[Rfam]
A member of the RNA family "Streptococcus sRNA SpF59 (ldcC RNA)" from Clostridium sp. CAG:81, 63 nucleotides long.
Rfam's curators put it in the seed alignment.

RNA sequence: UGACCACUCCCGCAGAACAGACUACGGAAGUUAAGCCCAUCGGACAGGCGGGUCAAGCGCCGC
Numbered sequence: 001u002g003a004c005c006a007c008u009c010c011c012g013c014a015g016a017a018c019a020g021a022c023u024a025c026g027g028a029a030g031u032u033a034a035g036c037c038c039a040u041c042g043g044a045c046a047g048g049c050g051g052g053u054c055a056a057g058c059g060c061c062g063c
Base pairs, nucleotide, nucleotide: 001055002054003053004052005051006031007030008029010027011026